RNA sequence: GUCGGUCAAUUUGGCAGUUGACUGUAACUCUGCUUCUGGAGGACAGGGUGGUGGAAUAACCCUCACUUGGGUCCACAACUCUUUGCGCCGCACGUUGAGAGUAGUGUCUCACUUGAACCCGAUGUGAACAUUCUGGUCUAAGUGUAAAUUUGGAUCAGGAGGUUCUUAAAUAGCAGGGAUAAUGCCCGAGGCUGGAAACAGAGCAGGGAAAACUUGCAGCAUUGGGUGGCAGUGAGGUAGCACACUUGAGUGAUUGGUUGUAGAGGUUGCUAAGUGAGAUGGUUGGACUGUCAUCCGC
Numbered sequence: 001g002u003c004g005g006u007c008a009a010u011u012u013g014g015c016a017g018u019u020g021a022c023u024g025u026a027a028c029u030c031u032g033c034u035u036c037u038g039g040a041g042g043a044c045a046g047g048g049u050g051g052u053g054g055a056a057u058a059a060c061c062c063u064c065a066c067u068u069g070g071g072u073c074c075a076c077a078a079c080u081c082u083u084u085g086c087g088c089c090g091c092a093c094g095u096u097g098a099g100a101g102u103a104g105u106g107u108c109u110c111a112c113u114u115g116a117a118c119c120c121g122a123u124g125u126g127a128a129c130a131u132u133c134u135g136g137u138c139u140a141a142g143u144g145u146a147a148a149u150u151u152g153g154a155u156c157a158g159g160a161g162g163u164u165c166u167u168a169a170a171u172a173g174c175a176g177g178g179a180u181a182a183u184g185c186c187c188g189a190g191g192c193u194g195g196a197a198a199c200a201g202a203g204c205a206g207g208g209a210a211a212a213c214u215u216g217c218a219g220c221a222u223u224g225g226g227u228g229g230c231a232g233u234g235a236g237g238u239a240g241c242a243c244a245c246u247u248g249a250g251u252g253a254u255u256g257g258u259u260g261u262a263g264a265g266g267u268u269g270c271u272a273a274g275u276g277a278g279a280u281g282g283u284u285g286g287a288c289u290g291u292c293a294u295c296c297g298c
Stems, first nucleotide, its partner, number of pairs: 001044003004023008028041003046296009057285005063277008076269005082263002087258004091252003095248001099247004104243004108236002113232003117227009126165004131160013166172001173217005183210001185208003192201003